[Rfam]
RNA: DUF2800 RNA
RNA sequence: GUCCUGAGCAAGACAGAAAACUGCUCACCGUCAGGGAAUGCACCGACUGAUCACCGGUGGCUCAACGUUUCCUGACGGCCACAAGUAAAUAUCAUCAGCUGCCUUUUGAGCGGGAAGCUGCAGACCGGAACGGAGAAAUCUCCGUCGGGACUGUGGUUAGGUUUCUAUACCCAUUUUGCAGCUGACCA
Dot-bracket structure: ...........................(((((.((((((((((((.........)))))[[[[[[))))))).))))).................(((((((...]]]]]].....(((((........(((((......))))).......)))))....................)))))))....